[Rfam]
A member of the RNA family "SAM riboswitch aptamer (S box leader)" from Chryseobacterium gleum, 108 nucleotides long. NCBI's taxonomy places the organism under Bacteria, Flavobacteriales, Weeksellaceae, Chryseobacterium, Chryseobacterium gleum. Rfam's curators put it in the seed alignment.

RNA sequence: AUGUUAUCAAGAAAGGUUGAGGGAUUAGACCCUGUGAAACCUUAGCAACCCUUUGCGCAAGUAAAGAAGGUGCUACGUUCUACCAAAAUAAUUUUGGACAGAUAACUU
Numbered sequence: 001a002u003g004u005u006a007u008c009a010a011g012a013a014a015g016g017u018u019g020a021g022g023g024a025u026u027a028g029a030c031c032c033u034g035u036g037a038a039a040c041c042u043u044a045g046c047a048a049c050c051c052u053u054u055g056c057g058c059a060a061g062u063a064a065a066g067a068a069g070g071u072g073c074u075a076c077g078u079u080c081u082a083c084c085a086a087a088a089u090a091a092u093u094u095u096g097g098a099c100a101g102a103u104a105a106c107u108u
Base pairs, nucleotide, nucleotide: 001108003106004105005104006103007102008101013043014042015041016040017039021032022031023030026082027081028080029079044074045073046072047071049070050069051066052065053064054063078100083097084096085095086094087093088092